[Rfam]
RNA sequence: AGGGCAGUGAUGAGACGCGCAGGGGUACGGACCUCAGCUGGUAAUGGGAGCUGAGUGCUGGUGUCUGAAUUCAGAUCAGUAGGCAUGUGGUCAGCUGGCUGAAGGACACCAGCAUGAGACUGACGCCUGACUGAGCCCU
Dot-bracket structure: (((((.................................................................................................................................)))))
Numbered sequence: 001a002g003g004g005c006a007g008u009g010a011u012g013a014g015a016c017g018c019g020c021a022g023g024g025g026u027a028c029g030g031a032c033c034u035c036a037g038c039u040g041g042u043a044a045u046g047g048g049a050g051c052u053g054a055g056u057g058c059u060g061g062u063g064u065c066u067g068a069a070u071u072c073a074g075a076u077c078a079g080u081a082g083g084c085a086u087g088u089g090g091u092c093a094g095c096u097g098g099c100u101g102a103a104g105g106a107c108a109c110c111a112g113c114a115u116g117a118g119a120c121u122g123a124c125g126c127c128u129g130a131c132u133g134a135g136c137c138c139u
Stems, first nucleotide, its partner, number of pairs: 001139005